A member of the RNA family "STAXI RNA" from Yersinia enterocolitica, 160 nucleotides long. The base pairs follow the family's consensus structure, which is taken from published work. Rfam classes the family as a small RNA.

[Rfam]
RNA sequence: UGUUGCAUCGCGCAACAUGCCAAUGUCCUGGUGAUUUGAGAGGGACGCCUUCGGGUAAUCGCAUGCCAAUGUCACCUUAGCCUGAGAGGUGACGCCUUCGGGCGGUACCCUCGUUAACCUUUGAAAAUGGGGAUCGCAACAGAGUUGCGGUAAGGUCUCU
Numbered sequence: 001u002g003u004u005g006c007a008u009c010g011c012g013c014a015a016c017a018u019g020c021c022a023a024u025g026u027c028c029u030g031g032u033g034a035u036u037u038g039a040g041a042g043g044g045a046c047g048c049c050u051u052c053g054g055g056u057a058a059u060c061g062c063a064u065g066c067c068a069a070u071g072u073c074a075c076c077u078u079a080g081c082c083u084g085a086g087a088g089g090u091g092a093c094g095c096c097u098u099c100g101g102g103c104g105g106u107a108c109c110c111u112c113g114u115u116a117a118c119c120u121u122u123g124a125a126a127a128u129g130g131g132g133a134u135c136g137c138a139a140c141a142g143a144g145u146u147g148c149g150g151u152a153a154g155g156u157c158u159c160u
Stems, first nucleotide, its partner, number of pairs: 002016005025046005031062006047056003071093005078107002081105002094103003109132005117156005136148003